[Rfam]
RNA sequence: AUGCACAUUAUAUUUAUAGGUUUCUCUUAUAAUAUAGAGCAAUCUUGAGCUAAUUUGCAUAGAUUAAUAGCUGUUAAAUCAGCAAGCAGCCAGACAACUGCUGAGAUGGAUCCACAGAUUAACGGCUUAUUAGUGCUGUUUGUCUACUAAUUCCGUCUUAUAUUU
Numbered sequence: 001a002u003g004c005a006c007a008u009u010a011u012a013u014u015u016a017u018a019g020g021u022u023u024c025u026c027u028u029a030u031a032a033u034a035u036a037g038a039g040c041a042a043u044c045u046u047g048a049g050c051u052a053a054u055u056u057g058c059a060u061a062g063a064u065u066a067a068u069a070g071c072u073g074u075u076a077a078a079u080c081a082g083c084a085a086g087c088a089g090c091c092a093g094a095c096a097a098c099u100g101c102u103g104a105g106a107u108g109g110a111u112c113c114a115c116a117g118a119u120u121a122a123c124g125g126c127u128u129a130u131u132a133g134u135g136c137u138g139u140u141u142g143u144c145u146a147c148u149a150a151u152u153c154c155g156u157c158u159u160a161u162a163u164u165u
Base pairs, nucleotide, nucleotide: 002059003058004057005056013049014048015047016046018045019044020043021042022041024039025038026037027036103159104158105157106156107155108154109153110152120142121141122140123138124137125136